[Rfam]
RNA sequence: GAAGCGUCAGGCUUGGGAGAGCCAAAGCGCUUCGACACACGACGGGGUCAGCCUCGGGAGGGCGGGCAGCGUCGGAAUCAAGGGGAGAUGACCGAUGCAGAAUUCGCUGCUGGUCGGACUAUCGCGUCAGGUCGCGCUCG
Numbered sequence: 001g002a003a004g005c006g007u008c009a010g011g012c013u014u015g016g017g018a019g020a021g022c023c024a025a026a027g028c029g030c031u032u033c034g035a036c037a038c039a040c041g042a043c044g045g046g047g048u049c050a051g052c053c054u055c056g057g058g059a060g061g062g063c064g065g066g067c068a069g070c071g072u073c074g075g076a077a078u079c080a081a082g083g084g085g086a087g088a089u090g091a092c093c094g095a096u097g098c099a100g101a102a103u104u105c106g107c108u109g110c111u112g113g114u115c116g117g118a119c120u121a122u123c124g125c126g127u128c129a130g131g132u133c134g135c136g137c138u139c140g
Base pairs, nucleotide, nucleotide: 001033002032003031004030005029006028007027010023011022012021013020014019040074041073042072043071044070051063052062053061055060092117093116094115095114096113098112099111100110102108
RNA: flg-Rhizobiales RNA